[Rfam]
RNA: Vault RNA
Organism: Mizuhopecten yessoensis
RNA sequence: GUACCGGCUCAGUCAAGUGGAUACUUCGAAAUGCUAAAUGAAAGUUAUUUGCGUGUCCGACCCCCAUACGUUCCACUGACGCCACCCAGUCCUUUU
Numbered sequence: 001g002u003a004c005c006g007g008c009u010c011a012g013u014c015a016a017g018u019g020g021a022u023a024c025u026u027c028g029a030a031a032u033g034c035u036a037a038a039u040g041a042a043a044g045u046u047a048u049u050u051g052c053g054u055g056u057c058c059g060a061c062c063c064c065c066a067u068a069c070g071u072u073c074c075a076c077u078g079a080c081g082c083c084a085c086c087c088a089g090u091c092c093u094u095u096u
Base pairs, nucleotide, nucleotide: 003090004089006087007086012080013079014078015077017076018075019074020073026060027059028058